The record is an 85-nucleotide RNA from Drosophila busckii, which matches "mir-31 microRNA precursor family" in Rfam.
[Rfam]
Nucleotides: 085
Stems, first nucleotide, its partner, number of pairs: 004082002008078007016070005022065009
Number, partner (000 for none) and nucleotide at each position: 001000g002000u003000u004082g005081g006000u007000g008078a009077a010076u011075u012074g013073g014072c015000a016070a017069g018068a019067u020066g021000u022065c023064g024063g025062c026061a027060u028059a029058g030057c031000u032000g033000a034000c035000g036000u037000u038000u039000g040000a041000u042000c043000u044000c045000a046000a047000g048000u049000u050000u051000a052000a053000u054000a055000g056000c057030g058029c059028u060027a061026u062025g063024c064023u065022g066020c067019a068018u069017c070016u071000a072014g073013u074012c075011a076010g077009u078008u079000a080000u081005u082004c083000a084000a085000u
Description: Clan: mir-31 microRNA precursor family. The literature on the family includes a 2023 paper in bioRxiv [Preprint] by Ma et al., "Structure of pre-miR-31 reveals an active role in Dicer processing". The match comes from Rfam's covariance-model search (59 bits).